Shown here is a 173-nucleotide RNA sequence from Burkholderia sp. WAC0059, a member of the family "Burkholderia RNA 14". The base pairs follow the family's consensus structure, which was predicted with RNAfold. The match comes from Rfam's covariance-model search (106 bits). By type it is a small RNA. Lineage of the source: Bacteria > Pseudomonadota > Betaproteobacteria > Burkholderiaceae > Burkholderia. On this family, see Ramos et al., Genomics 2013: "Experimental identification of small non-coding regulatory RNAs in the opportunistic human pathogen Burkholderia cenocepacia J2315".

[Rfam]
RNA sequence: GUGGGCGUCGUUACCGUCCAGCCGGGUUCAGUGCCGGUCGUCACCGAACUGCCGGGCCGCACCAGCGCGUUCCUCGUCGCCCAGGUGCGGGCGCGCGUGGACGGCAUCGUGCUGAACCGGGACUUCGUCGAAGGCUCGAUCGUGAAAGAGGGACAGCGCCUCUACAAGAUCGA
Numbered sequence: 001g002u003g004g005g006c007g008u009c010g011u012u013a014c015c016g017u018c019c020a021g022c023c024g025g026g027u028u029c030a031g032u033g034c035c036g037g038u039c040g041u042c043a044c045c046g047a048a049c050u051g052c053c054g055g056g057c058c059g060c061a062c063c064a065g066c067g068c069g070u071u072c073c074u075c076g077u078c079g080c081c082c083a084g085g086u087g088c089g090g091g092c093g094c095g096c097g098u099g100g101a102c103g104g105c106a107u108c109g110u111g112c113u114g115a116a117c118c119g120g121g122a123c124u125u126c127g128u129c130g131a132a133g134g135c136u137c138g139a140u141c142g143u144g145a146a147a148g149a150g151g152g153a154c155a156g157c158g159c160c161u162c163u164a165c166a167a168g169a170u171c172g173a
Stems, first nucleotide, its partner, number of pairs: 004053004008047003011043001013041002016038001018037002021034002023031001057148001059143002065137001067135002072133001074131002078093005094121001097118001102114005157172002160168002
Dot-bracket structure: ...((((((((.((.(.((.(((.......).)).))).)).).)))..))))...(.((....(.((...(.((..(((((......)))))(..(....(((((...)))))...)..)........)).))).)....))....)........((.((.....))..)).